[Rfam]
RNA: Small nucleolar RNA SNORA84
Organism: Electrophorus electricus
RNA sequence: GCCUGGUGGUUCCUUGAGGCAGCUCUCAUGCUGCUCAUCGAGGCUGUAAUUACAGGCAGACAUUGACUUCUGUGAUGUAAUGCUUGAGAGCUGCUUACCUCCUAUGGCUUUCAGAGCCCGGUCACAGAAACAUUG
Numbered sequence: 001g002c003c004u005g006g007u008g009g010u011u012c013c014u015u016g017a018g019g020c021a022g023c024u025c026u027c028a029u030g031c032u033g034c035u036c037a038u039c040g041a042g043g044c045u046g047u048a049a050u051u052a053c054a055g056g057c058a059g060a061c062a063u064u065g066a067c068u069u070c071u072g073u074g075a076u077g078u079a080a081u082g083c084u085u086g087a088g089a090g091c092u093g094c095u096u097a098c099c100u101c102c103u104a105u106g107g108c109u110u111u112c113a114g115a116g117c118c119c120g121g122u123c124a125c126a127g128a129a130a131c132a133u134u135g
Stems, first nucleotide, its partner, number of pairs: 001057004007048002012043006019034005070127001072125005082117002084114004089109005